[Rfam]
RNA: mraW RNA
Organism: Pseudonocardiaceae bacterium YIM PH 21723
RNA sequence: AAACACUGUCGAUGUCUUCAGGCCUCGGUCCGCUCGCACACAAUCGUUCCUGACACACCUUCCCCGGUGCCAGGCGCGUGGAGCGGGCGGGGACCUGUCGGCAUCGCCUGGCGAUACAC
Numbered sequence: 001a002a003a004c005a006c007u008g009u010c011g012a013u014g015u016c017u018u019c020a021g022g023c024c025u026c027g028g029u030c031c032g033c034u035c036g037c038a039c040a041c042a043a044u045c046g047u048u049c050c051u052g053a054c055a056c057a058c059c060u061u062c063c064c065c066g067g068u069g070c071c072a073g074g075c076g077c078g079u080g081g082a083g084c085g086g087g088c089g090g091g092g093a094c095c096u097g098u099c100g101g102c103a104u105c106g107c108c109u110g111g112c113g114a115u116a117c118a119c
Base pairs, nucleotide, nucleotide: 010106011105012104013103014102015101016100021095022094024092025091026090028088029087030086031085032084033083034082035081037080049074050073051072052071054069055068056067